[Rfam]
RNA sequence: AUAUGAGAUAGAGGUGCAGAACUAAUAAGUAUAUUCCGGGAACGUCAGGUGCGUAUAGAUCGGAGUAAAAAGGUAGUUCUGCCGAAGGAGAAUUUCUUGCCUGAGUUAUUUUCCUGGGGGCACAAUGAAUAAUUGUGUCACUGUCACGGGUAACUGUGGAGAACUAUCUUUUUU
Numbered sequence: 001a002u003a004u005g006a007g008a009u010a011g012a013g014g015u016g017c018a019g020a021a022c023u024a025a026u027a028a029g030u031a032u033a034u035u036c037c038g039g040g041a042a043c044g045u046c047a048g049g050u051g052c053g054u055a056u057a058g059a060u061c062g063g064a065g066u067a068a069a070a071a072g073g074u075a076g077u078u079c080u081g082c083c084g085a086a087g088g089a090g091a092a093u094u095u096c097u098u099g100c101c102u103g104a105g106u107u108a109u110u111u112u113c114c115u116g117g118g119g120g121c122a123c124a125a126u127g128a129a130u131a132a133u134u135g136u137g138u139c140a141c142u143g144u145c146a147c148g149g150g151u152a153a154c155u156g157u158g159g160a161g162a163a164c165u166a167u168c169u170u171u172u173u174u
Stems, first nucleotide, its partner, number of pairs: 006169006016082009032067008086115008096105002116142002119139008144159006
The record is a 174-nucleotide RNA sequence from Alkalicoccus daliensis, which matches "Lysine riboswitch aptamer" in Rfam.